[Rfam]
Shown here is a 48-nucleotide RNA from Longimicrobium terrae, a member of the family "Guanidine-II riboswitch aptamer (mini-ykkC)". Simpler in structure and has fewer highly conserved nucleotide positions than the ykkC-yxkD leader. A search with the family's covariance model found it, with a score of 39 bits.
RNA sequence: GGACGGGGACGACUUCGUCUUUCUGAUACUCAGGUGGGGACGGCCCCA
Number, nucleotide and partner (000 for none) at each position: 001g020002g019003a018004c017005g016006g015007g014008g013009a000010c000011g000012a000013c008014u007015u006016c005017g004018u003019c002020u001021u000022u000023c000024u000025g000026a000027u000028a000029c000030u000031c000032a000033g000034g000035u048036g047037g046038g045039g044040a000041c000042g000043g000044c039045c038046c037047c036048a035